[Rfam]
RNA sequence: CUUGUACUCAUUUGUAAGUCGCUUUGGAUAAAAGCGUCUGCUAAAUGACUAAAU
Numbered sequence: 001c002u003u004g005u006a007c008u009c010a011u012u013u014g015u016a017a018g019u020c021g022c023u024u025u026g027g028a029u030a031a032a033a034g035c036g037u038c039u040g041c042u043a044a045a046u047g048a049c050u051a052a053a054u
Stems, first nucleotide, its partner, number of pairs: 013043001014041003020036006
UnaL2 LINE 3' element: a 54-nucleotide sequence from Danio rerio. From the family's description: The eel long interspersed element (LINE) UnaL2 and its partner short interspersed element (SINE) share a conserved 3' tail containing a stem-loop that is critical for their retrotransposition. Presumably, the first step of retrotransposition is the recognition of their 3' tails by UnaL2-encoded reverse transcriptase. NCBI's taxonomy places the organism under Eukaryota, Chordata, Teleostei, Danionidae, Danio. The match comes from Rfam's covariance-model search (67 bits). The base pairs follow the family's consensus structure, which is taken from published work. Rfam classes the family as a cis-regulatory element.